[Rfam]
RNA: Small Cajal body specific RNA 16
Organism: Anhinga rufa
RNA sequence: CAGGGCUGGGGAAGGGCUGCUGGGCGGCGGGCCUGCGGCCCAGCCUCCUCCCAGGCAGCCUCACCCGCGCCCCACAGCAAGCUCCGGCUGGGCUGCGCCCGUGCAGUAGCAGGUGUGAGCACCCAUGCAGCGUUUUGGUGGUCAUGUAUGAUACUGCACACAACC
Numbered sequence: 001c002a003g004g005g006c007u008g009g010g011g012a013a014g015g016g017c018u019g020c021u022g023g024g025c026g027g028c029g030g031g032c033c034u035g036c037g038g039c040c041c042a043g044c045c046u047c048c049u050c051c052c053a054g055g056c057a058g059c060c061u062c063a064c065c066c067g068c069g070c071c072c073c074a075c076a077g078c079a080a081g082c083u084c085c086g087g088c089u090g091g092g093c094u095g096c097g098c099c100c101g102u103g104c105a106g107u108a109g110c111a112g113g114u115g116u117g118a119g120c121a122c123c124c125a126u127g128c129a130g131c132g133u134u135u136u137g138g139u140g141g142u143c144a145u146g147u148a149u150g151a152u153a154c155u156g157c158a159c160a161c162a163a164c165c
Stems, first nucleotide, its partner, number of pairs: 003072004008066003015060004020054003024051001026045003030041001031039003084092002101159008110150002116144003120140004127134001